Annotation:
The record is a 73-nucleotide RNA sequence from Myotis myotis, which matches "mir-9193 microRNA precursor family" in Rfam. Pairs were carried over by alignment from the consensus structure, which was predicted with RNAalifold. The family has 2 seed sequences and 6,008 matches in Rfam 15.1.

RNA sequence: GGUGGGGGGUGUGUGUCCCUCAGCCUGGAUGGUGAGAGGGCGCAGGCCAGGCCGAGGGACACAUCAGUGCACG
Number, nucleotide and partner (000 for none) at each position: 001g000002g000003u071004g070005g000006g068007g000008g000009g065010u000011g000012u000013g062014u061015g060016u059017c058018c057019c056020u055021c054022a000023g052024c051025c050026u000027g048028g047029a000030u045031g000032g043033u042034g041035a000036g000037a000038g000039g000040g000041c034042g033043c032044a000045g030046g000047c028048c027049a000050g025051g024052c023053c000054g021055a020056g019057g018058g017059a016060c015061a014062c013063a000064u000065c009066a000067g000068u006069g000070c004071a003072c000073g000